Rfam assigns this 72-nucleotide RNA sequence from Patiria pectinifera to the family "tRNA". The family's RNA type in Rfam is transfer RNA.
RNA sequence: GCUGAAAUAGCAAAGUGGUAAUGCGAGAAGCCUAAGAUUUCUUUAUCGAAGGUUCAAAUCCUUCUUUCAGUU
Numbered sequence: 001g002c003u004g005a006a007a008u009a010g011c012a013a014a015g016u017g018g019u020a021a022u023g024c025g026a027g028a029a030g031c032c033u034a035a036g037a038u039u040u041c042u043u044u045a046u047c048g049a050a051g052g053u054u055c056a057a058a059u060c061c062u063u064c065u066u067u068c069a070g071u072u
Base pairs, nucleotide, nucleotide: 001071002070003069004068005067006066007065010024011023012022026042027041028040029039030038048064049063050062051061052060